[Rfam]
Description
Shown here is a 171-nucleotide RNA from Natrinema halophilum, a member of the family "Sense overlapping transcript RNA 0042 (sot)". It is associated with IS1341-type transposase (tnpB) genes, at the 3'-end in H. salinarum NRC-1. The organism belongs to Natrinema, within Archaea. A search with the family's covariance model found it, with a score of 110 bits. Pairs were carried over by alignment from the consensus structure, which was predicted with RNAfold.

RNA sequence: AGGUACUCCCGAGUCUCGCCUGUGACGGGGGAGAUAGGGAUAACGGCUGGAUGGCACAGCCAGCGGUGCAUCUGUUCGAGAAAUCCACGGGACACGUAGUCCCACAAGAACAGGGAACCCGCAAACCAUAAUAUCCCACCGCUUGGGAAACCGCGGCGUUCACGCCGCGGA
Numbered sequence: 001a002g003g004u005a006c007u008c009c010c011g012a013g014u015c016u017c018g019c020c021u022g023u024g025a026c027g028g029g030g031g032a033g034a035u036a037g038g039g040a041u042a043a044c045g046g047c048u049g050g051a052u053g054g055c056a057c058a059g060c061c062a063g064c065g066g067u068g069c070a071u072c073u074g075u076u077c078g079a080g081a082a083a084u085c086c087a088c089g090g091g092a093c094a095c096g097u098a099g100u101c102c103c104a105c106a107a108g109a110a111c112a113g114g115g116a117a118c119c120c121g122c123a124a125a126c127c128a129u130a131a132u133a134u135c136c137c138a139c140c141g142c143u144u145g146g147g148a149a150a151c152c153g154c155g156g157c158g159u160u161c162a163c164g165c166c167g168c169g170g171a
Stems, first nucleotide, its partner, number of pairs: 003044002007040004013035003016031002019028002045061005064121003068118001071114007089103005134148004151170008